[Rfam]
RNA sequence: GGUUGAGAGGGCUGCGUUAUCGCGGUUCGCUGGGACGGUCAGUCCCACUCAGCUG
Dot-bracket structure: (((((((.(((((((......)))))))..(((((.......)))))))))))).
About this RNA:
This 55-nucleotide RNA belongs to the Rfam family "DUF3800-VI RNA". The family's RNA type in Rfam is cis-regulatory element. It is one of the family's seed sequences.